Shown here is a 222-nucleotide RNA sequence from Listeria grayi, a member of the family "T-box leader". The family's RNA type in Rfam is cis-regulatory leader.
RNA sequence: AAACAGACGAAGAUGGAGACAAGUAAAAAGCGAGCAGACAAGUUUGAGCGAGUCAGCGAACGGUGCGAGGCUGAUAACUUUAACGCUUUUGAAAUCACUCUGGAGUCCCGUUUCCGAAAGUAAGUAAGAAAUGGCGCGAACCUAGCGUUAUAGGUGUAUCAAAGUGGGUGGCGAUCCGUCGUCAUCAACAAGGGUGGUACCGCGAUUCAUCUCGUCCCUUUU
Numbered sequence: 001a002a003a004c005a006g007a008c009g010a011a012g013a014u015g016g017a018g019a020c021a022a023g024u025a026a027a028a029a030g031c032g033a034g035c036a037g038a039c040a041a042g043u044u045u046g047a048g049c050g051a052g053u054c055a056g057c058g059a060a061c062g063g064u065g066c067g068a069g070g071c072u073g074a075u076a077a078c079u080u081u082a083a084c085g086c087u088u089u090u091g092a093a094a095u096c097a098c099u100c101u102g103g104a105g106u107c108c109c110g111u112u113u114c115c116g117a118a119a120g121u122a123a124g125u126a127a128g129a130a131a132u133g134g135c136g137c138g139a140a141c142c143u144a145g146c147g148u149u150a151u152a153g154g155u156g157u158a159u160c161a162a163a164g165u166g167g168g169u170g171g172c173g174a175u176c177c178g179u180c181g182u183c184a185u186c187a188a189c190a191a192g193g194g195u196g197g198u199a200c201c202g203c204g205a206u207u208c209a210u211c212u213c214g215u216c217c218c219u220u221u222u
Stems, first nucleotide, its partner, number of pairs: 007106002015101004026090006041079003052075006109133006135147003167186007191219004202215004
The source organism's lineage runs through Bacteria, Bacillota, Bacilli, Caryophanales and Listeria grayi.